Rfam assigns this 148-nucleotide RNA sequence from Molossus molossus to the family "Small nucleolar RNA SNORA79".
The base pairs follow the family's consensus structure, which was predicted with RNAalifold.
NCBI's taxonomy places the organism under Eukaryota, Opisthokonta, Amniota, Molossidae, Molossus.
Rfam classes the family as an H/ACA-box small nucleolar RNA.

RNA sequence: UGAUGGCUUUUCCUCUCACUGCUUGGAGCCUUAGGUAGUGGGAUUUUAGUCCAUCAUAUAUCUAAGCUAAUUUGUUUUCAGUCAGAGCACCAUGGGAAUGGGUUGGCUGUCCAUUAGUGCCUUAUGGGUUCUGUGGAGUUGAACAAUU
Numbered sequence: 001u002g003a004u005g006g007c008u009u010u011u012c013c014u015c016u017c018a019c020u021g022c023u024u025g026g027a028g029c030c031u032u033a034g035g036u037a038g039u040g041g042g043a044u045u046u047u048a049g050u051c052c053a054u055c056a057u058a059u060a061u062c063u064a065a066g067c068u069a070a071u072u073u074g075u076u077u078u079c080a081g082u083c084a085g086a087g088c089a090c091c092a093u094g095g096g097a098a099u100g101g102g103u104u105g106g107c108u109g110u111c112c113a114u115u116a117g118u119g120c121c122u123u124a125u126g127g128g129u130u131c132u133g134u135g136g137a138g139u140u141g142a143a144c145a146a147u148u
Stems, first nucleotide, its partner, number of pairs: 001056006008049001014043005020037004069140005082127003086123001087120004095112002098110003
About this RNA
A search with the family's covariance model found it, with a score of 90 bits. The family has 25 seed sequences and 944 matches in Rfam 15.1. About the family: ACA65 (SNORA79) is a member of the H/ACA class of snoRNAs that guide the sites of modification of uridines to pseudouridines. This snoRNA was identified by computational screening and its expression in mouse experimentally verified by Northern blot and primer extension analysis.